[Rfam]
RNA sequence: UGAAAAUUAGAUUUUAAAGGAGUAAUUCCCCAACUAGGAGCUACUUUACCAUAUUUUGAAUUC
Numbered sequence: 001u002g003a004a005a006a007u008u009a010g011a012u013u014u015u016a017a018a019g020g021a022g023u024a025a026u027u028c029c030c031c032a033a034c035u036a037g038g039a040g041c042u043a044c045u046u047u048a049c050c051a052u053a054u055u056u057u058g059a060a061u062u063c
Base pairs, nucleotide, nucleotide: 019047020046021045022044023043024042026040027039028038029037
RNA: Plastid-psbN 5UTR RNA
Organism: Rosa chinensis